[Rfam]
Notes
This 94-nucleotide RNA sequence from Colocasia esculenta belongs to the Rfam family "Small nucleolar RNA R11/Z151".
RNA sequence: CUGCUCAUGAUGAGUGAUGUAUUAGCGGAUUUCAGUGAGCCCCUUCUGGGUCGAUGAACUGAAAAAACCAUUGUUGUUACACACACUGAAGCUG
Numbered sequence: 001c002u003g004c005u006c007a008u009g010a011u012g013a014g015u016g017a018u019g020u021a022u023u024a025g026c027g028g029a030u031u032u033c034a035g036u037g038a039g040c041c042c043c044u045u046c047u048g049g050g051u052c053g054a055u056g057a058a059c060u061g062a063a064a065a066a067a068c069c070a071u072u073g074u075u076g077u078u079a080c081a082c083a084c085a086c087u088g089a090a091g092c093u094g
Stems, first nucleotide, its partner, number of pairs: 001094001003092003
For this family Rfam cites "Identification of 66 box C/D snoRNAs in Arabidopsis thaliana: extensive gene duplications generated multiple isoforms predicting new ribosomal RNA 2'-O-methylation sites" (Barneche et al., J Mol Biol, 2001). NCBI's taxonomy places the organism under Eukaryota, Streptophytina, Embryophyta, Liliopsida, Colocasia. It is annotated as a C/D-box small nucleolar RNA. The match comes from Rfam's covariance-model search (51 bits).